Shown here is a 72-nucleotide RNA from Callaeas wilsoni, a member of the family "tRNA". Transfer RNA (tRNA) molecules are approximately 80 nucleotides in length. NCBI's taxonomy places the organism under Eukaryota, Dipnotetrapodomorpha, Telluraves, Corvoidea, Callaeas. Pairs were carried over by alignment from the consensus structure, which is taken from published work. Rfam links the family to the GO term triplet codon-amino acid adaptor activity. A search with the family's covariance model found it, with a score of 57 bits. The family's RNA type in Rfam is transfer RNA.

[Rfam]
RNA sequence: GGCUCGAUGGUCUAGUGGUAUGAUACUCGCUUUGGGUGUGAGUGGUCCCGGGUUCAAAUCCCGGUCGGGCCC
Numbered sequence: 001g002g003c004u005c006g007a008u009g010g011u012c013u014a015g016u017g018g019u020a021u022g023a024u025a026c027u028c029g030c031u032u033u034g035g036g037u038g039u040g041a042g043u044g045g046u047c048c049c050g051g052g053u054u055c056a057a058a059u060c061c062c063g064g065u066c067g068g069g070c071c072c
Stems, first nucleotide, its partner, number of pairs: 001071007010024003026042005048064005